[Rfam]
RNA: eL15-Euryarchaeota ribosomal protein leader
RNA sequence: CCUGUGGCGAUACUGCAGGUCGGAAUGUGGCCAGCGUGGUCCGGUGGACCACGCGGCUGAACCAUCAA
Number, nucleotide and partner (000 for none) at each position: 001c019002c018003u017004g016005u015006g014007g013008c000009g000010a000011u000012a000013c007014u006015g005016c004017a003018g002019g001020u000021c000022g063023g062024a000025a000026u000027g000028u000029g058030g057031c056032c055033a000034g000035c000036g000037u000038g000039g000040u000041c000042c000043g000044g000045u000046g000047g000048a000049c000050c000051a000052c000053g000054c000055g032056g031057c030058u029059g000060a000061a000062c023063c022064a000065u000066c000067a000068a000